Small nucleolar RNA R38: a 78-nucleotide sequence from Biomphalaria glabrata.
Rfam classes the family as a C/D-box small nucleolar RNA.
Rfam describes the family as follows. snoR38 is a C/D box small nucleolar RNA conserved across yeast, human, Arabidopsis and rice. It is encoded in the intron of elongation factor-1 gamma in both pombe and cerevisiae. snoR38 guides the methylation of 2'-O-ribose sites in 28S rRNA.
On this family, see Bachellerie et al., Trends Biochem Sci 1995: "Antisense snoRNAs: a family of nucleolar RNAs with long complementarities to rRNA".
Gene Ontology terms of the family: RNA processing and nucleolus.
Rfam 15.1 lists 2,295 matches to the family in 1,305 species.
It scores 45 bits against the family's covariance model.
[Rfam]
RNA sequence: UUUUGCCUGUGAUGAACAUAGUUAUCCCUGUCUUAAUAGCGCUCUUUGCACAUGGGGACAUUACUUUCUGAGGCAAUU
Numbered sequence: 001u002u003u004u005g006c007c008u009g010u011g012a013u014g015a016a017c018a019u020a021g022u023u024a025u026c027c028c029u030g031u032c033u034u035a036a037u038a039g040c041g042c043u044c045u046u047u048g049c050a051c052a053u054g055g056g057g058a059c060a061u062u063a064c065u066u067u068c069u070g071a072g073g074c075a076a077u078u
Base pairs, nucleotide, nucleotide: 003076004075005074006073007072